[Rfam]
RNA sequence: AGGCUAUGAUGAUAUAUUAGUCAUGCACCACUCAGAGUGAUUUUUUAUAUCAGUUGUUGAUAAGCGACUGGUCACCAUAACUUAUUUGAGCCU
Numbered sequence: 001a002g003g004c005u006a007u008g009a010u011g012a013u014a015u016a017u018u019a020g021u022c023a024u025g026c027a028c029c030a031c032u033c034a035g036a037g038u039g040a041u042u043u044u045u046u047a048u049a050u051c052a053g054u055u056g057u058u059g060a061u062a063a064g065c066g067a068c069u070g071g072u073c074a075c076c077a078u079a080a081c082u083u084a085u086u087u088g089a090g091c092c093u
Stems, first nucleotide, its partner, number of pairs: 001093004
Shown here is a 93-nucleotide RNA sequence from Papaver nudicaule, a member of the family "Small nucleolar RNA Z221/R21b". The family's RNA type in Rfam is C/D-box small nucleolar RNA. A search with the family's covariance model found it, with a score of 51 bits. Lineage of the source: Eukaryota > Streptophytina > Spermatophyta > Ranunculales > Papaver.